[Rfam]
Eukaryotic large subunit ribosomal RNA: a 492-nucleotide part of an RNA from Plenodomus lingam. Gene Ontology terms of the family: ribosome and structural constituent of ribosome. The base pairs follow the family's consensus structure, which is taken from published work. Lineage of the source: Eukaryota > Fungi > leotiomyceta > Pleosporomycetidae > Plenodomus lingam.
RNA sequence: CCUACUAAAGUUUCCCUUAGGAUAGCAGUAACGUAUUUAGUUUUAUAAGGUAAAGCGAAUAAUUAGAGGCCUAGGGGUUAAAAUAACCUUUACCUAUUCUUAAACUUUAAAUAUAUAAGAAGUCCUUGUUACUUAAUUAAACGUAGACACUUAAAUGUACUGUUACUAGUAGGCUAUUUUUAGUAAGCAGAACUAGUAAUGCAGGAUAAACUAAACGCAGGGUUAAGGUGCUAGAAUACACGCUUAUUAGACACCACAAAAGGUGUUAGUUUAUCUAGACAGCAGGAUAGUAGCUAUAGAAGUUAGAAUCCGCUAAGGAGUGUGUAAUAACUUACCUGCUAAAUAAACUAGCCCUAAAAAUAGAUAGCGCUUAAGCGUGUUACCUAUACCCCGCCACUAGGGCAAGAUUUAAGCCCUAGCGAGUAGGCAGGCGUAGAGGCUCGUAACAAAGCCUUAGGGGUAACCCUAGGUAGAAUAGCCUCUAGUGCAGAU
Numbered sequence: 001c002c003u004a005c006u007a008a009a010g011u012u013u014c015c016c017u018u019a020g021g022a023u024a025g026c027a028g029u030a031a032c033g034u035a036u037u038u039a040g041u042u043u044u045a046u047a048a049g050g051u052a053a054a055g056c057g058a059a060u061a062a063u064u065a066g067a068g069g070c071c072u073a074g075g076g077g078u079u080a081a082a083a084u085a086a087c088c089u090u091u092a093c094c095u096a097u098u099c100u101u102a103a104a105c106u107u108u109a110a111a112u113a114u115a116u117a118a119g120a121a122g123u124c125c126u127u128g129u130u131a132c133u134u135a136a137u138u139a140a141a142c143g144u145a146g147a148c149a150c151u152u153a154a155a156u157g158u159a160c161u162g163u164u165a166c167u168a169g170u171a172g173g174c175u176a177u178u179u180u181u182a183g184u185a186a187g188c189a190g191a192a193c194u195a196g197u198a199a200u201g202c203a204g205g206a207u208a209a210a211c212u213a214a215a216c217g218c219a220g221g222g223u224u225a226a227g228g229u230g231c232u233a234g235a236a237u238a239c240a241c242g243c244u245u246a247u248u249a250g251a252c253a254c255c256a257c258a259a260a261a262g263g264u265g266u267u268a269g270u271u272u273a274u275c276u277a278g279a280c281a282g283c284a285g286g287a288u289a290g291u292a293g294c295u296a297u298a299g300a301a302g303u304u305a306g307a308a309u310c311c312g313c314u315a316a317g318g319a320g321u322g323u324g325u326a327a328u329a330a331c332u333u334a335c336c337u338g339c340u341a342a343a344u345a346a347a348c349u350a351g352c353c354c355u356a357a358a359a360a361u362a363g364a365u366a367g368c369g370c371u372u373a374a375g376c377g378u379g380u381u382a383c384c385u386a387u388a389c390c391c392c393g394c395c396a397c398u399a400g401g402g403c404a405a406g407a408u409u410u411a412a413g414c415c416c417u418a419g420c421g422a423g424u425a426g427g428c429a430g431g432c433g434u435a436g437a438g439g440c441u442c443g444u445a446a447c448a449a450a451g452c453c454u455u456a457g458g459g460g461u462a463a464c465c466c467u468a469g470g471u472a473g474a475a476u477a478g479c480c481u482c483u484a485g486u487g488c489a490g491a492u
Stems, first nucleotide, its partner, number of pairs: 001431003005427002011024001013022003027167007041120007053108001054106002060102003065097001067095003072092006079085001122148003127143004173197004178192004203212002217394002220391002223388001227384003236381001238380001241377003261355003265352010282339005288312001290310001294306002313317001318333001322331002395421001397419007432487001434484008443476002451471002457466003